Shown here is a 36-nucleotide RNA sequence from Crocodylus porosus, a member of the family "Iron response element I". Gene Ontology term of the family: response to iron ion. By type it is a cis-regulatory element.
RNA sequence: UCGCCUCUUGCUUCAACAGUGCUUGGACGGAGGCAG
Numbered sequence: 001u002c003g004c005c006u007c008u009u010g011c012u013u014c015a016a017c018a019g020u021g022c023u024u025g026g027a028c029g030g031a032g033g034c035a036g
Stems, first nucleotide, its partner, number of pairs: 001036001003034006010028001012027005017021001